[Rfam]
The family of this 34-nucleotide sequence is "L31-Firmicutes ribosomal protein leader". The base pairs follow the family's consensus structure, which is taken from published work. A reference for the family is Eckert and Weinberg (2020), "Discovery of 20 novel ribosomal leader candidates in bacteria and archaea", BMC Microbiol.
RNA sequence: CUUUGGGCGACAUUACGGCUCAAGGCGGAAGGAG
Numbered sequence: 001c002u003u004u005g006g007g008c009g010a011c012a013u014u015a016c017g018g019c020u021c022a023a024g025g026c027g028g029a030a031g032g033a034g
Stems, first nucleotide, its partner, number of pairs: 001025008